The record is a 100-nucleotide RNA from Streptomyces tsukubensis, which matches "che1 RNA" in Rfam.
RNA sequence: AGGACAGGGGGGUUCCCGUCGUACGCCGGGGCCUGUCCGACCCGAGGCCGCAACCGAUCCGUCGGACGCGGCAGCGGUUGUCGCUCGGGGGUGAUCGCCG
Numbered sequence: 001a002g003g004a005c006a007g008g009g010g011g012g013u014u015c016c017c018g019u020c021g022u023a024c025g026c027c028g029g030g031g032c033c034u035g036u037c038c039g040a041c042c043c044g045a046g047g048c049c050g051c052a053a054c055c056g057a058u059c060c061g062u063c064g065g066a067c068g069c070g071g072c073a074g075c076g077g078u079u080g081u082c083g084c085u086c087g088g089g090g091g092u093g094a095u096c097g098c099c100g
Base pairs, nucleotide, nucleotide: 002038003037004036005035006034007033008032014031015030016029017028018027020025047072048071049070050069051068
Pairs were carried over by alignment from the consensus structure, which is taken from published work. The family's RNA type in Rfam is small RNA. Taxonomically the source falls in Streptomyces tsukubensis (Bacteria, Bacillati, Actinomycetota, Actinomycetes).